[Rfam]
Rfam assigns this 196-nucleotide sequence from Vallitalea pronyensis to the family "Lysine riboswitch aptamer". Pairs were carried over by alignment from the consensus structure, which is taken from published work. The organism belongs to Vallitalea, within Bacteria. A search with the family's covariance model found it, with a score of 78 bits.
RNA sequence: ACCAUGAAUAGAGGCGCAAAGGAAGGGUAGUCUUUAAGUGCUAAGGAGAUGAACCUCUGAAAUUAAAGACGAAGGGUCACUUUGCCGAAAGGGUAUACGGGUUCAUAAGUAUACGCUUGGUGAUAAGAAUAAUGCCUUAUCACUGCCAUCAACCUAUGAUUGAUAGCCAAUAGGAUAAUGGAGAGCUAUUUAUGUU
Numbered sequence: 001a002c003c004a005u006g007a008a009u010a011g012a013g014g015c016g017c018a019a020a021g022g023a024a025g026g027g028u029a030g031u032c033u034u035u036a037a038g039u040g041c042u043a044a045g046g047a048g049a050u051g052a053a054c055c056u057c058u059g060a061a062a063u064u065a066a067a068g069a070c071g072a073a074g075g076g077u078c079a080c081u082u083u084g085c086c087g088a089a090a091g092g093g094u095a096u097a098c099g100g101g102u103u104c105a106u107a108a109g110u111a112u113a114c115g116c117u118u119g120g121u122g123a124u125a126a127g128a129a130u131a132a133u134g135c136c137u138u139a140u141c142a143c144u145g146c147c148a149u150c151a152a153c154c155u156a157u158g159a160u161u162g163a164u165a166g167c168c169a170a171u172a173g174g175a176u177a178a179u180g181g182a183g184a185g186c187u188a189u190u191u192a193u194g195u196u
Base pairs, nucleotide, nucleotide: 006191007190008189009188010187011186016085017084018083019082020081021080024077030070031069032068033067034066035065036064037063089118090117091116093114094113095112096111097110098109119144120143121142122141123140124139125138126137127136146181147180148179149178151176